Notes:
Rfam assigns this 123-nucleotide RNA from Onychostoma macrolepis to the family "Small nucleolar RNA SNORA71". On this family, see Ganot et al., Genes Dev 1997: "The family of box ACA small nucleolar RNAs is defined by an evolutionarily conserved secondary structure and ubiquitous sequence elements essential for RNA accumulation". Rfam's curators write: The members of this family belong to the H/ACA class of snoRNAs which bind a number of proteins (including dyskerin, Gar1p and Nop10p) to form snoRNP complexes. This class of snoRNAs are thought to guide the sites of modification of uridines to pseudouridines by forming direct base pairing interactions with substrate RNAs. This family includes U71 (SNORA71), ACA39 (SNORA39) and ACA60 (SNORA60). U71 and ACA60 are predicted to guide the pseudouridylation of U406 and U1004 in 18S rRNA respectively. Rfam classes the family as an H/ACA-box small nucleolar RNA. Pairs were carried over by alignment from the consensus structure, which was predicted with PFOLD.

RNA sequence: ACCUGUGUCGAAAGUGACUGUGGAGUGAGGUCUCCAGGUCAUUGAUAGUACAGGAAGAGCAAGUGAAAGUCUUUCCCGUGUUUGCUGGACGCUGUUCCUCUCAAACCCUGAAUCUUUCACACA
Numbered sequence: 001a002c003c004u005g006u007g008u009c010g011a012a013a014g015u016g017a018c019u020g021u022g023g024a025g026u027g028a029g030g031u032c033u034c035c036a037g038g039u040c041a042u043u044g045a046u047a048g049u050a051c052a053g054g055a056a057g058a059g060c061a062a063g064u065g066a067a068a069g070u071c072u073u074u075c076c077c078g079u080g081u082u083u084g085c086u087g088g089a090c091g092c093u094g095u096u097c098c099u100c101u102c103a104a105a106c107c108c109u110g111a112a113u114c115u116u117u118c119a120c121a122c123a
Stems, first nucleotide, its partner, number of pairs: 002054007013043007022035004063120007080106005087098003